[Rfam]
RNA sequence: CGCCCAUCCAGAGCGAUCGAGAGACCCGGCUCCACGACGUCGCAGCAACCCCCCGACUGGGUAUGGGUGCUACCGCCGGGACCGAUGGAGG
Numbered sequence: 001c002g003c004c005c006a007u008c009c010a011g012a013g014c015g016a017u018c019g020a021g022a023g024a025c026c027c028g029g030c031u032c033c034a035c036g037a038c039g040u041c042g043c044a045g046c047a048a049c050c051c052c053c054c055g056a057c058u059g060g061g062u063a064u065g066g067g068u069g070c071u072a073c074c075g076c077c078g079g080g081a082c083c084g085a086u087g088g089a090g091g
Stems, first nucleotide, its partner, number of pairs: 001091001004088005013043005021032003026079004044071004049067002053061002075083001